[Rfam]
RNA: MIR394 microRNA precursor family
Organism: Ziziphus jujuba
RNA sequence: UUUACAGAGCCAGUUUGGCACGCUGGCCACCUCCAGUCGAAAAGAAUAAAGAUCAAUGGAGGUGGACAGAAUGCCAAAUAGGCUCUGCAAC
Numbered sequence: 001u002u003u004a005c006a007g008a009g010c011c012a013g014u015u016u017g018g019c020a021c022g023c024u025g026g027c028c029a030c031c032u033c034c035a036g037u038c039g040a041a042a043a044g045a046a047u048a049a050a051g052a053u054c055a056a057u058g059g060a061g062g063u064g065g066a067c068a069g070a071a072u073g074c075c076a077a078a079u080a081g082g083c084u085c086u087g088c089a090a091c
Base pairs, nucleotide, nucleotide: 011081015077016076017075018074019073020072024068025067027065028064029063030062031061032060033059034058